RNA sequence: GUGCGUAAAACGCCAAAUUCCGGCACCGGGAAGUGGGGGAACCAUUUUUUGGGUGAAUUGAUCUCGCAUUAGAGGGGUCAUAGGGGAGCCUUCUACCGAAUCCUUAAGCUAACCUCGCAGGCCUUGGAAGGAGUACAU
Numbered sequence: 001g002u003g004c005g006u007a008a009a010a011c012g013c014c015a016a017a018u019u020c021c022g023g024c025a026c027c028g029g030g031a032a033g034u035g036g037g038g039g040a041a042c043c044a045u046u047u048u049u050u051g052g053g054u055g056a057a058u059u060g061a062u063c064u065c066g067c068a069u070u071a072g073a074g075g076g077g078u079c080a081u082a083g084g085g086g087a088g089c090c091u092u093c094u095a096c097c098g099a100a101u102c103c104u105u106a107a108g109c110u111a112a113c114c115u116c117g118c119a120g121g122c123c124u125u126g127g128a129a130g131g132a133g134u135a136c137a138u
Base pairs, nucleotide, nucleotide: 012122013121014120018032019031020030033118034117035116036115037114038113044049051103052102053101059080060079061078062077063076064075065074083097084096086094
RNA: c-di-AMP riboswitch aptamer (ydaO/yuaA leader)